[Rfam]
RNA sequence: UGAGAUGGAAUCAGUGUUUGGAUAUGCAAUUUUACGCUGAUUCCAUCUCCUA
Dot-bracket structure: .(((((((((((((((((((......)))....))))))))))))))))...
The family of this 52-nucleotide sequence from Solanum commersonii is "MIR1886 microRNA precursor family". Rfam links the family to the GO terms miRNA-mediated post-transcriptional gene silencing and RISC complex.